[Rfam]
RNA sequence: CAUGGCGAUGAUGAGCCCUAACAGACCUGUAAUGAUUCUUGCGGUCAUGAUCGCUUGAACAAAGAACAUCUAAGGGACUGAGUUGUG
Numbered sequence: 001c002a003u004g005g006c007g008a009u010g011a012u013g014a015g016c017c018c019u020a021a022c023a024g025a026c027c028u029g030u031a032a033u034g035a036u037u038c039u040u041g042c043g044g045u046c047a048u049g050a051u052c053g054c055u056u057g058a059a060c061a062a063a064g065a066a067c068a069u070c071u072a073a074g075g076g077a078c079u080g081a082g083u084u085g086u087g
Base pairs, nucleotide, nucleotide: 002086003085004084005083006082
RNA: Small nucleolar RNA SNORD25